Record summary: Plant small nucleolar RNA U3: a 223-nucleotide sequence from Trifolium subterraneum. By type it is a C/D-box small nucleolar RNA. On this family, see Marz and Stadler, RNA Biol 2010: "Comparative analysis of eukaryotic U3 snoRNA". Small nucleolar RNAs (snoRNAs) are involved in the processing and modification of rRNA in the nucleolus. There are two main classes of snoRNAs: the box C/D class, and the box H/ACA class. U3 snoRNA is a member of the box C/D class. Indeed, the box C/D element is a subset of the six short sequence elements found in all U3 snoRNAs, namely boxes A, A', B, C, C', and D. The U3 snoRNA secondary structure is characterised by a small 5' domain (with boxes A and A'), and a larger 3' domain (with boxes B, C, C', and D), the two domains being linked by a single-stranded hinge. Boxes B and C form the B/C motif, which appears to be exclusive to U3 snoRNAs, and boxes C' and D form the C'/D motif. The latter is functionally similar to the C/D motifs found in other snoRNAs. The 5' domain and the hinge region act as a pre-rRNA-binding domain. The 3' domain has conserved protein-binding sites. Both the box B/C and box C'/D motifs are sufficient for nuclear retention of U3 snoRNA. The box C'/D motif is also necessary for nucleolar localisation, stability and hyper-methylation of U3 snoRNA. Both box B/C and C'/D motifs are involved in specific protein interactions and are necessary for the rRNA processing functions of U3 snoRNA. The source organism's lineage runs through Eukaryota, Streptophyta, Euphyllophyta, Spermatophyta and Trifolium. A search with the family's covariance model found it, with a score of 179 bits.
RNA sequence: ACGACCUUACUUGAACAGGAUCUGUUCUAUAGGAUCGUACUACUGUGUCCUUGAUUUCUAAGGAGACCAGAACAUAUGUCUGGUGGAUGACAUGUGACCGUGUGAUCAGAGCGUGAUUAAUGGCUAUGAUGAUCUGCAUCUUGUGCUCAUCGUCCUCAGCUGUAGAGGAUCGUUCUCAGCCAGUAACACUGACUGGGGUGGUCACACGGUUGUCUGACAGACU
Numbered sequence: 001a002c003g004a005c006c007u008u009a010c011u012u013g014a015a016c017a018g019g020a021u022c023u024g025u026u027c028u029a030u031a032g033g034a035u036c037g038u039a040c041u042a043c044u045g046u047g048u049c050c051u052u053g054a055u056u057u058c059u060a061a062g063g064a065g066a067c068c069a070g071a072a073c074a075u076a077u078g079u080c081u082g083g084u085g086g087a088u089g090a091c092a093u094g095u096g097a098c099c100g101u102g103u104g105a106u107c108a109g110a111g112c113g114u115g116a117u118u119a120a121u122g123g124c125u126a127u128g129a130u131g132a133u134c135u136g137c138a139u140c141u142u143g144u145g146c147u148c149a150u151c152g153u154c155c156u157c158a159g160c161u162g163u164a165g166a167g168g169a170u171c172g173u174u175c176u177c178a179g180c181c182a183g184u185a186a187c188a189c190u191g192a193c194u195g196g197g198g199u200g201g202u203c204a205c206a207c208g209g210u211u212g213u214c215u216g217a218c219a220g221a222c223u
Base pairs, nucleotide, nucleotide: 001038002037003035005033006032007031013027014026015025016024017023018022045067046066048064049063050062051061052060053059078222079221080220081219082218097210098209099208100207101206102205103204104203105202106201107200108199110174111173112172113171120163121162122161123160124159125158128155133149176196177195178194179193181191182190183189